[Rfam]
RNA sequence: UCCAUCCUGACGGGUAAGUCCUGUUACGUGCCUUAGGUGUUUCCUUCCAUCGGCUGGCGAUAAGCCUAAGGAUAAGAGCGUAAUAGGGGCCGUCUAUUUU
Numbered sequence: 001u002c003c004a005u006c007c008u009g010a011c012g013g014g015u016a017a018g019u020c021c022u023g024u025u026a027c028g029u030g031c032c033u034u035a036g037g038u039g040u041u042u043c044c045u046u047c048c049a050u051c052g053g054c055u056g057g058c059g060a061u062a063a064g065c066c067u068a069a070g071g072a073u074a075a076g077a078g079c080g081u082a083a084u085a086g087g088g089g090c091c092g093u094c095u096a097u098u099u100u
Base pairs, nucleotide, nucleotide: 004097005096010093011092024083025082026081027080028079029077031076032070033069034068035067036066037065038064044057045056047053048052
RNA: DUF3800-V RNA
Organism: Methylotenera mobilis